[Rfam]
Nucleotides: 271
Stems, first nucleotide, its partner, number of pairs: 001244005006238003010234001015217002018178002021175004026169001028167001033084003037081004092155006106119002130146001185205003218232004250271009
Number, partner (000 for none) and nucleotide at each position: 001244c002243a003242a004241u005240g006238a007237u008236c009000g010234c011000g012000u013000u014000u015217u016216c017000c018178u019177c020000a021175a022174g023173g024172g025000a026169g027000g028167u029000c030000g031000g032000c033084g034083c035082a036000u037081u038080c039079c040078u041000g042000a043000c044000g045000g046000u047000u048000g049000u050000a051000g052000u053000g054000c055000c056000a057000u058000a059000c060000g061000a062000u063000a064000c065000g066000c067000u068000g069000c070000a071000a072000c073000g074000a075000a076000a077000g078040g079039g080038g081037g082035u083034g084033u085000u086000g087000c088000c089000u090000a091000u092155g093154u094153c095152u096151g097150u098000u099000u100000u101000u102000g103000a104000g105000a106119c107118a108000a109000u110000g111000g112000u113000u114000u115000u116000a117000a118107u119106g120000a121000u122000c123000g124000c125000u126000u127000u128000c129000g130146c131000a132000a133000c134000a135000c136000u137000c138000g139000u140000u141000g142000u143000g144000a145000c146130g147000a148000u149000u150097a151096u152095a153094g154093a155092c156000c157000a158000u159000a160000a161000a162000a163000a164000a165000u166000a167028g168000a169026c170000c171000u172024c173023c174022c175021u176000c177019g178018g179000a180000u181000u182000a183000c184000c185205a186204g187203g188000c189000c190000a191000g192000u193000g194000a195000g196000g197000u198000c199000u200000a201000u202000u203187c204186c205185u206000u207000a208000c209000u210000u211000g212000c213000g214000c215000c216016g217015a218232c219231c220230c221229c222000u223000c224000u225000u226000g227000a228000a229221g230220g231219g232218g233000a234010g235000c236008g237007a238006u239000u240005c241004a242003u243002u244001g245000c246000c247000g248000a249000c250271c251270g252269a253268a254267g255266a256265u257264a258263u259000u260000c261000g262000c263258g264257u265256a266255u267254c268253u269252u270251c271250g
The record is a 271-nucleotide sequence from Lentibacillus populi, which matches "BsrG" in Rfam. On this family, see Saito et al., Gene 2008: "Novel small RNA-encoding genes in the intergenic regions of Bacillus subtilis". It is annotated as a small RNA. About the family: bsrE, bsrG and bsrH pair through intermolecular interactions with antisense sRNAs. The source organism's lineage runs through Bacteria, Bacillati, Bacillota, Caryophanales and Lentibacillus. Rfam links the family to the GO terms toxin activity and autolysis. The family's consensus secondary structure was predicted with WAR.